[Rfam]
RNA sequence: ACAACAUUCGGACUGUCAGUCUACAGAGCAAUAUCACCCGCUCGGUGAAUGAUCUUUCCUACGCCGC
Numbered sequence: 001a002c003a004a005c006a007u008u009c010g011g012a013c014u015g016u017c018a019g020u021c022u023a024c025a026g027a028g029c030a031a032u033a034u035c036a037c038c039c040g041c042u043c044g045g046u047g048a049a050u051g052a053u054c055u056u057u058c059c060u061a062c063g064c065c066g067c
Stems, first nucleotide, its partner, number of pairs: 005063001010058003015053003020049001022047003026043004
RNA: mir-2774 microRNA precursor family
Organism: Bombyx mori